[Rfam]
RNA sequence: GAUAGCGGACCCUUCACAACGGAUCGUUCGGCACGUACCUGCCGAUGAAAGGAAUGGCUA
Numbered sequence: 001g002a003u004a005g006c007g008g009a010c011c012c013u014u015c016a017c018a019a020c021g022g023a024u025c026g027u028u029c030g031g032c033a034c035g036u037a038c039c040u041g042c043c044g045a046u047g048a049a050a051g052g053a054a055u056g057g058c059u060a
Stems, first nucleotide, its partner, number of pairs: 010052002013049004028045006

The record is a 60-nucleotide RNA sequence from Bifidobacterium mongoliense, which matches "msiK RNA" in Rfam. Taxonomically the source falls in Bifidobacterium mongoliense (Bacteria, Actinomycetes, Bifidobacteriaceae, Bifidobacterium).